The family of this 256-nucleotide RNA sequence from Streptomyces sp. ICC1 is "Streptomyces sRNA 4677". The family has 12 seed sequences and 563 matches in Rfam 15.1. It scores 110 bits against the family's covariance model. Rfam's curators write: Located in the intergenic region between anti-sigma factor SCO4677 gene and a putative regulatory protein gene SCO4676. scr4677 expression requires the SCO4677 activity and scr4677 sRNA itself seem to affect the levels of the SCO4676-associated transcripts. The base pairs follow the family's consensus structure. The organism belongs to Streptomyces, within Bacteria. For this family Rfam cites "Complex intra-operonic dynamics mediated by a small RNA in Streptomyces coelicolor" (Hindra et al., PLoS One, 2014). The family's RNA type in Rfam is small RNA.
[Rfam]
RNA sequence: CGAUCCGGUGGCGCCGGACGCAUAAAGACCCAAAGAACCGGGGGAAAAAACCAACCGACCCAACCCAACCGGCCCGCGUCCAGCCCGCUCGCGGGCCUCGUCGCUCGGUCGGGUGAACUAUGCCAACUCGGCUGGAUUCCAGACCGGUUGCCGGGCAUAUGCUCGCCCCGACGACAACAGCAGACAUGAGACGGCCCCCGGCGGGAGUGCAAUCCCGGUCGAGGGCCUGACCAAGCAGGAAGCGUAGACCUUCCCC
Number, nucleotide and partner (000 for none) at each position: 001c000002g000003a000004u000005c000006c000007g000008g000009u233010g232011g000012c000013g000014c000015c000016g089017g088018a000019c087020g086021c000022a000023u000024a000025a000026a000027g000028a000029c000030c000031c000032a000033a000034a000035g000036a000037a000038c000039c000040g000041g000042g000043g000044g000045a000046a000047a000048a000049a000050a000051c000052c000053a000054a000055c000056c000057g000058a000059c000060c000061c000062a000063a000064c000065c000066c000067a000068a000069c000070c000071g000072g000073c000074c000075c000076g000077c000078g000079u000080c000081c000082a000083g000084c000085c000086c020087g019088c017089u016090c000091g000092c000093g000094g000095g000096c000097c000098u000099c000100g000101u116102c115103g114104c113105u112106c111107g000108g000109u000110c000111g106112g105113g104114u103115g102116a101117a000118c000119u000120a000121u000122g000123c000124c000125a000126a000127c000128u000129c000130g000131g167132c000133u165134g164135g163136a000137u000138u000139c000140c000141a000142g000143a000144c000145c000146g000147g000148u000149u000150g000151c000152c000153g000154g000155g000156c000157a000158u000159a000160u000161g000162c000163u135164c134165g133166c000167c131168c000169c000170g000171a000172c000173g000174a000175c000176a000177a000178c000179a000180g000181c000182a000183g000184a000185c000186a000187u000188g000189a000190g000191a000192c000193g227194g226195c225196c224197c223198c000199c221200g220201g000202c000203g216204g215205g214206a213207g000208u000209g000210c000211a000212a000213u206214c205215c204216c203217g000218g000219u000220c200221g199222a000223g197224g196225g195226c194227c193228u000229g000230a000231c000232c010233a009234a000235g000236c000237a000238g254239g253240a252241a251242g250243c000244g000245u000246a000247g000248a000249c000250c242251u241252u240253c239254c238255c000256c000